[Rfam]
RNA sequence: UCCCAAUGAGGAAGUAAACCCAAAAGAUAGAAAGUGCCGUAUGACACUUUAACAUCAGCAUU
Numbered sequence: 001u002c003c004c005a006a007u008g009a010g011g012a013a014g015u016a017a018a019c020c021c022a023a024a025a026g027a028u029a030g031a032a033a034g035u036g037c038c039g040u041a042u043g044a045c046a047c048u049u050u051a052a053c054a055u056c057a058g059c060a061u062u
Stems, first nucleotide, its partner, number of pairs: 014059002031050006
RNA: Small nucleolar RNA U49